[Rfam]
RNA sequence: CGUGUUCAGUCCAACCCCCCGGGACUGAACCUAGGCGACCCCCGUCCCUCCCCCCUGGCGGGGGUCGUCCCAU
Numbered sequence: 001c002g003u004g005u006u007c008a009g010u011c012c013a014a015c016c017c018c019c020c021g022g023g024a025c026u027g028a029a030c031c032u033a034g035g036c037g038a039c040c041c042c043c044g045u046c047c048c049u050c051c052c053c054c055c056u057g058g059c060g061g062g063g064g065u066c067g068u069c070c071c072a073u
Base pairs, nucleotide, nucleotide: 002032004030005029006028007027008026009025010024011023012022034069035068036067037066038065039064040063041062042061043060044059045058046057
6C RNA: a 73-nucleotide RNA from Kutzneria kofuensis. NCBI's taxonomy places the organism under Bacteria, Bacillati, Actinomycetota, Pseudonocardiales, Kutzneria. Gene Ontology term of the family: sporulation. It is annotated as a cis-regulatory element. Pairs were carried over by alignment from the consensus structure, which is taken from published work.